[Rfam]
RNA sequence: UCUCAUUUAAACGAUGUAUUCCCUAACCUCUAAUACAUCCUUGUAGCUCCAUAGCUACGCCAGUGUGAAUAAACGUCCUCAAAAAAACA
Numbered sequence: 001u002c003u004c005a006u007u008u009a010a011a012c013g014a015u016g017u018a019u020u021c022c023c024u025a026a027c028c029u030c031u032a033a034u035a036c037a038u039c040c041u042u043g044u045a046g047c048u049c050c051a052u053a054g055c056u057a058c059g060c061c062a063g064u065g066u067g068a069a070u071a072a073a074c075g076u077c078c079u080c081a082a083a084a085a086a087a088c089a
Stems, first nucleotide, its partner, number of pairs: 036067002040063002042059007